Shown here is a 138-nucleotide sequence from Desulfosporosinus orientis, a member of the family "c-di-AMP riboswitch aptamer (ydaO/yuaA leader)". It scores 92 bits against the family's covariance model. Taxonomically the source falls in Desulfosporosinus orientis (Bacteria, Bacillota, Eubacteriales, Desulfitobacteriaceae). The pairing is the family consensus, mapped onto this sequence. Its family is annotated with regulation of gene expression and cyclic-di-AMP binding in the Gene Ontology.

RNA sequence: AUAAAUUAAAAGCUUAAUCUAGGUAACCUAGAACGGGGGAAAUUUUUUUUGGGGUGAAACGCAUACUAGAGUGCGAAGGGCUUAAACCUUGUUGCCCGAAUCCGUCAACUAACCUCGUAAGCUAAGAAAGGUAAGAAA
Numbered sequence: 001a002u003a004a005a006u007u008a009a010a011a012g013c014u015u016a017a018u019c020u021a022g023g024u025a026a027c028c029u030a031g032a033a034c035g036g037g038g039g040a041a042a043u044u045u046u047u048u049u050u051g052g053g054g055u056g057a058a059a060c061g062c063a064u065a066c067u068a069g070a071g072u073g074c075g076a077a078g079g080g081c082u083u084a085a086a087c088c089u090u091g092u093u094g095c096c097c098g099a100a101u102c103c104g105u106c107a108a109c110u111a112a113c114c115u116c117g118u119a120a121g122c123u124a125a126g127a128a129a130g131g132u133a134a135g136a137a138a
Base pairs, nucleotide, nucleotide: 011123012122013121014120018032019031020030033118034117035116036115037114038113043051052103053102054101060075061074062073063072078097079096080095081094